[Rfam]
The family of this 93-nucleotide RNA sequence from Acinetobacter baumannii is "int-alpA RNA". It is one of the family's seed sequences. It is annotated as a small RNA. Pairs were carried over by alignment from the consensus structure, which is taken from published work.
RNA sequence: ACACUGGCUAGAGCGACGGUUCGAAAGGAAGAUGGUCAUUCGACUACUCAUUGCAUCUUCUUGCCAGUGUCUUUUCUUAAAUGGGUAGUCGGA
Number, nucleotide and partner (000 for none) at each position: 001a070002c069003a068004c067005u066006g065007g064008c063009u000010a000011g022012a021013g020014c019015g000016a000017c000018g000019g014020u013021u012022c011023g000024a000025a000026a000027g000028g060029a059030a058031g057032a056033u000034g000035g000036u000037c000038a000039u000040u000041c000042g000043a000044c000045u000046a000047c085048u084049c083050a082051u081052u080053g000054c000055a000056u032057c031058u030059u029060c028061u000062u000063g008064c007065c006066a005067g004068u003069g002070u001071c000072u000073u000074u000075u000076c000077u000078u000079a000080a052081a051082u050083g049084g048085g047086u000087a000088g000089u000090c000091g000092g000093a000